[Rfam]
RNA sequence: UGGUCUGUAGCUCAACGGUCAGAGCUUCUGCCUUAUACGCAGCGGGUUGUGGGUUCAAAUCCUACCAGACCAA
Number, nucleotide and partner (000 for none) at each position: 001u072002g071003g070004u069005c068006u067007g066008u000009a000010g025011c024012u023013c022014a000015a000016c000017g000018g000019u000020c000021a000022g013023a012024g011025c010026u000027u000028c042029u041030g040031c039032c000033u000034u000035a000036u000037a000038c000039g031040c030041a029042g028043c000044g000045g000046g000047u000048u000049g065050u064051g063052g062053g061054u000055u000056c000057a000058a000059a000060u000061c053062c052063u051064a050065c049066c007067a006068g005069a004070c003071c002072a001073a000